Shown here is a 76-nucleotide RNA from Firmicutes bacterium CAG:41, a member of the family "Fluoride riboswitch aptamer (crcB RNA motif)". Rfam links the family to the GO terms positive regulation of gene expression and response to fluoride. A search with the family's covariance model found it, with a score of 52 bits. Lineage of the source: Bacteria > Bacillati > Bacillota. The base pairs follow the family's consensus structure, which is taken from published work.

RNA sequence: UUAAAUAAAGGGAAUGAGGUUCUCCCUUAGUAUAAUACUAAAACCGCUUAUUUAAGCUGAUGACUUCUGCACUAUU
Dot-bracket structure: .........[[[[..((((((.]]]]...................((((....))))....)))))).........